[Rfam]
RNA sequence: CCACGAGAAAGGCAAACUUAUCGAAAGAUAAGGACGCAAAGCUACGGGCCUACCGGGCGAAAGCCCCAUGGCGGCCGAGUUGCCGAA
Number, nucleotide and partner (000 for none) at each position: 001c000002c000003a000004c000005g000006a000007g000008a000009a000010a000011g000012g037013c036014a000015a000016a000017c032018u031019u030020a029021u028022c027023g000024a000025a000026a000027g022028a021029u020030a019031a018032g017033g000034a000035c000036g013037c012038a000039a000040a081041g080042c079043u078044a000045c077046g076047g075048g072049c071050c070051u000052a000053c000054c000055g066056g065057g064058c063059g000060a000061a000062a000063g058064c057065c056066c055067c000068a000069u000070g050071g049072c048073g000074g000075c047076c046077g045078a043079g042080u041081u040082g000083c000084c000085g000086a000087a000

The record is an 87-nucleotide sequence from Cohnella candida, which matches "c-di-GMP-I riboswitch aptamer" in Rfam.
GEMM was predicted in a large-scale screen for bacterial structured RNA regulatory elements.
NCBI's taxonomy places the organism under Bacteria, Bacillati, Bacilli, Caryophanales, Cohnella.
The family's consensus secondary structure is taken from published work.